[Rfam]
RNA sequence: AAAACCCUGUCUGACCGAAGUCUGACGUUAUGCGUCAGAUACUGAUGUAGGUCAGGUGGGGUUUU
Numbered sequence: 001a002a003a004a005c006c007c008u009g010u011c012u013g014a015c016c017g018a019a020g021u022c023u024g025a026c027g028u029u030a031u032g033c034g035u036c037a038g039a040u041a042c043u044g045a046u047g048u049a050g051g052u053c054a055g056g057u058g059g060g061g062u063u064u065u
Stems, first nucleotide, its partner, number of pairs: 001065016020040009
Dot-bracket structure: ((((((((((((((((...(((((((((...))))))))).........))))))))))))))))

A member of the RNA family "DUF3800-VIII RNA", 65 nucleotides long. Bacteroidetes, Cyanobacteria, Firmicutes, Planctomycetes (1 example), Proteobacteria, Tenericutes (1 example). The family's RNA type in Rfam is small RNA.